[Rfam]
RNA: Guanidine-I riboswitch aptamer
Organism: Anaerosporomusa subterranea
RNA sequence: GAAGAAGCUUUCUAGGGUUCCGUGGCAUUAUAAUGUCAGACUGGUCCGAGAGGAAGCGCACAGCAAGCUGUGUACACGGAAGGAUAAAAGCCUGGGAGUA
Numbered sequence: 001g002a003a004g005a006a007g008c009u010u011u012c013u014a015g016g017g018u019u020c021c022g023u024g025g026c027a028u029u030a031u032a033a034u035g036u037c038a039g040a041c042u043g044g045u046c047c048g049a050g051a052g053g054a055a056g057c058g059c060a061c062a063g064c065a066a067g068c069u070g071u072g073u074a075c076a077c078g079g080a081a082g083g084a085u086a087a088a089a090g091c092c093u094g095g096g097a098g099u100a
Stems, first nucleotide, its partner, number of pairs: 007057006015047002020044002022041001023038006058073006075095001077098001081093003